[Rfam]
A member of the RNA family "Nuclear RNase P" from Folsomia candida, 323 nucleotides long.
RNA sequence: CCAGUUUCACGCUUACAACAAGGGGGUUCCUUUGGAGGAUUUUUAUUCUCCACUCUUUUGCCCUCGGGAAGGUCUGAGUCAAUGGCCGUACAAUGCUCUAGCAGGGCAUCCUUGUAACCAAGGGGUGGGGAAAGAGAAAAAGGCAGUUGCCGCUUUCAAGGUUCUUUUCAUGCUUGGGACGCCGCAAUCAAUGCAAUUGAUUGCGGUUGAGGCGAUAAAGGAAGUUUGAAUUGGGAAAUCCCCAUGGCCAGCAAUCUCAGUGCAAUUUGUAGGGUGGGACUCUUUUUGGUCUCAUAACUCAAUUCAGACUACGUUGAGACUGG
Number, nucleotide and partner (000 for none) at each position: 001c323002c322003a321004g320005u000006u000007u317008c316009a315010c000011g000012c273013u272014u271015a270016c269017a268018a267019c000020a000021a000022g065023g064024g063025g062026g000027u000028u000029c000030c000031u000032u000033u000034g000035g050036a049037g048038g047039a046040u045041u000042u000043u000044u000045a040046u039047u038048c037049u036050c035051c000052a000053c000054u000055c000056u000057u000058u000059u000060g000061c000062c025063c024064u023065c022066g000067g000068g000069a000070a000071g000072g000073u000074c307075u306076g305077a304078g303079u000080c000081a000082a000083u000084g249085g248086c247087c246088g000089u000090a000091c000092a000093a000094u108095g107096c106097u105098c104099u000100a000101g000102c000103a000104g098105g097106g096107c095108a094109u124110c123111c122112u121113u120114g119115u000116a000117a000118c000119c114120a113121a112122g111123g110124g109125g245126u244127g243128g242129g241130g240131a239132a000133a000134g000135a000136g000137a000138a000139a000140a000141a000142g000143g000144c000145a000146g000147u000148u000149g000150c000151c000152g000153c000154u000155u000156u000157c000158a000159a000160g000161g000162u000163u000164c000165u000166u000167u000168u000169c000170a000171u000172g000173c000174u000175u000176g000177g000178g000179a000180c000181g000182c000183c000184g000185c000186a000187a000188u000189c000190a000191a000192u000193g000194c000195a000196a000197u000198u000199g000200a000201u000202u000203g000204c000205g000206g000207u000208u000209g000210a000211g000212g000213c000214g000215a000216u000217a000218a000219a000220g000221g000222a000223a000224g000225u000226u000227u000228g000229a000230a000231u000232u000233g000234g000235g000236a000237a000238a000239u131240c130241c129242c128243c127244a126245u125246g087247g086248c085249c084250a000251g000252c000253a000254a000255u000256c000257u000258c000259a000260g000261u000262g000263c000264a000265a000266u000267u018268u017269g016270u015271a014272g013273g012274g295275u294276g293277g292278g291279a290280c289281u000282c000283u000284u000285u000286u000287u000288g000289g280290u279291c278292u277293c276294a275295u274296a000297a000298c000299u000300c000301a000302a000303u078304u077305c076306a075307g074308a000309c000310u000311a000312c000313g000314u000315u009316g008317a007318g000319a000320c004321u003322g002323g001
The organism belongs to Folsomia, within Eukaryota.
The family's RNA type in Rfam is ribozyme.